[Rfam]
RNA sequence: UGCCCCCUGACGGGAGAGACCGGCCUCGCCGGCGCCGAAGGAGCAACCGCCCCGGAAACUCUCAGGCAAAAGGACCGUCACGGGACG
Numbered sequence: 001u002g003c004c005c006c007c008u009g010a011c012g013g014g015a016g017a018g019a020c021c022g023g024c025c026u027c028g029c030c031g032g033c034g035c036c037g038a039a040g041g042a043g044c045a046a047c048c049g050c051c052c053c054g055g056a057a058a059c060u061c062u063c064a065g066g067c068a069a070a071a072g073g074a075c076c077g078u079c080a081c082g083g084g085a086c087g
Stems, first nucleotide, its partner, number of pairs: 006082001008080006020032004034067003037063002041061003047055002
Rfam assigns this 87-nucleotide sequence from Rhodovulum sp. PH10 to the family "Glycine riboswitch aptamer".